This 143-nucleotide sequence from Paenimyroides tangerinum belongs to the Rfam family "Flavo-1 RNA". Rfam 15.1 lists 7,497 matches to the family in 411 species. Lineage of the source: Bacteria > Pseudomonadati > Bacteroidota > Flavobacteriia > Paenimyroides. A search with the family's covariance model found it, with a score of 50 bits. The family's RNA type in Rfam is small RNA.
Nucleotides: 143
Stems, first nucleotide, its partner, number of pairs: 010135003014131002019126002024121003030116008
Number, partner (000 for none) and nucleotide at each position: 001000g002000u003000u004000g005000c006000g007000u008000u009000a010135g011134g012133g013000a014131u015130u016000g017000g018000a019126g020125c021000g022000g023000u024121a025120u026119c027000c028000u029000u030116u031115u032114u033113u034112g035111u036110u037109u038000a039000a040000a041000a042000a043000c044000g045000g046000a047000a048000u049000g050000u051000c052000a053000u054000u055000u056000a057000a058000a059000a060000a061000u062000g063000a064000g065000a066000u067000u068000g069000u070000g071000a072000a073000u074000c075000g076000a077000g078000u079000u080000c081000a082000g083000a084000a085000a086000g087000a088000c089000a090000u091000a092000a093000a094000a095000u096000g097000a098000a099000u100000a101000a102000c103000c104000a105000a106000u107000a108000a109037a110036a111035a112034c113033a114032a115031a116030a117000a118000a119026g120025a121024u122000u123000u124000a125020g126019c127000g128000g129000a130015a131014a132000g133012c134011c135010c136000g137000a138000c139000c140000g141000a142000g143000c